Rfam assigns this 125-nucleotide sequence from Klebsiella indica to the family "Phenylalanine leader peptide". The family's RNA type in Rfam is cis-regulatory leader. A reference for the family is Gurvich et al. (2010), "Two groups of phenylalanine biosynthetic operon leader peptides genes: a high level of apparently incidental frameshifting in decoding Escherichia coli pheL", Nucleic Acids Res. A search with the family's covariance model found it, with a score of 70 bits. Pairs were carried over by alignment from the consensus structure, which was predicted with CMfinder.
[Rfam]
RNA sequence: CAAGCAUGAAUGCUGCUAUUUUCCGUUUCUUUUUUUACUUUAGCACCUGAACGCAGGAGGCUAGCGCGUGAAAGAAGAAACGGAAAACAGCGCCCUGAAGCCUCCCAAGUGGAGGCUUUUUUUUA
Numbered sequence: 001c002a003a004g005c006a007u008g009a010a011u012g013c014u015g016c017u018a019u020u021u022u023c024c025g026u027u028u029c030u031u032u033u034u035u036u037a038c039u040u041u042a043g044c045a046c047c048u049g050a051a052c053g054c055a056g057g058a059g060g061c062u063a064g065c066g067c068g069u070g071a072a073a074g075a076a077g078a079a080a081c082g083g084a085a086a087a088c089a090g091c092g093c094c095c096u097g098a099a100g101c102c103u104c105c106c107a108a109g110u111g112g113a114g115g116c117u118u119u120u121u122u123u124u125a
Stems, first nucleotide, its partner, number of pairs: 015091003020086014035071004056065001097119009